[Rfam]
RNA: Acido-Lenti-1 RNA
RNA sequence: CCCAGGGCUGACGCCCUGGGCUAAUAGAAGUUGCCCUUUCAGAGCA
Numbered sequence: 001c002c003c004a005g006g007g008c009u010g011a012c013g014c015c016c017u018g019g020g021c022u023a024a025u026a027g028a029a030g031u032u033g034c035c036c037u038u039u040c041a042g043a044g045c046a
Base pairs, nucleotide, nucleotide: 001020002019003018004017005016006015007014008013033045034044036042037041